[Rfam]
RNA sequence: UCGGUAAUUUAGGUAGUUUCAAGUUGUUGGCCUGGAGUUUGAAAUCGCAGGAACCUGAAACUGCCUGAGUUACUCC
Numbered sequence: 001u002c003g004g005u006a007a008u009u010u011a012g013g014u015a016g017u018u019u020c021a022a023g024u025u026g027u028u029g030g031c032c033u034g035g036a037g038u039u040u041g042a043a044a045u046c047g048c049a050g051g052a053a054c055c056u057g058a059a060a061c062u063g064c065c066u067g068a069g070u071u072a073c074u075c076c
Stems, first nucleotide, its partner, number of pairs: 003074017023054003027050003030046001
Notes
Rfam assigns this 76-nucleotide RNA sequence from Denticeps clupeoides to the family "mir-196 microRNA precursor family". For this family Rfam cites "New microRNAs from mouse and human" (Lagos-Quintana et al., RNA, 2003). It scores 64 bits against the family's covariance model. Rfam links the family to the GO terms RISC complex and gene silencing by miRNA. The family has 84 seed sequences and 1,813 matches in Rfam 15.1.